MIR4374 microRNA precursor family: a 119-nucleotide sequence from Glycine soja. Its family is annotated with RISC complex and miRNA-mediated post-transcriptional gene silencing in the Gene Ontology. The base pairs follow the family's consensus structure, which was predicted with RNAalifold. The match comes from Rfam's covariance-model search (117 bits). The family has 3 seed sequences and 72 matches in Rfam 15.1. The source organism's lineage runs through Eukaryota, Streptophytina, rosids, Fabales and Glycine subgen. Soja.
[Rfam]
RNA sequence: CAAAGACGGUGCUUACCUCAGCAACGUCUUUGAAAGUAGGCAUUCUAAGACGUUGCUGAGGUAAGCACCGUCUUUGAAUGCAUACUUUCAAAGACGGUGCUGACGUAAGCACCGCCUUU
Numbered sequence: 001c002a003a004a005g006a007c008g009g010u011g012c013u014u015a016c017c018u019c020a021g022c023a024a025c026g027u028c029u030u031u032g033a034a035a036g037u038a039g040g041c042a043u044u045c046u047a048a049g050a051c052g053u054u055g056c057u058g059a060g061g062u063a064a065g066c067a068c069c070g071u072c073u074u075u076g077a078a079u080g081c082a083u084a085c086u087u088u089c090a091a092a093g094a095c096g097g098u099g100c101u102g103a104c105g106u107a108a109g110c111a112c113c114g115c116c117u118u119u
Stems, first nucleotide, its partner, number of pairs: 004117002007114001009112008018103003022099002025096014041080005047074006054067004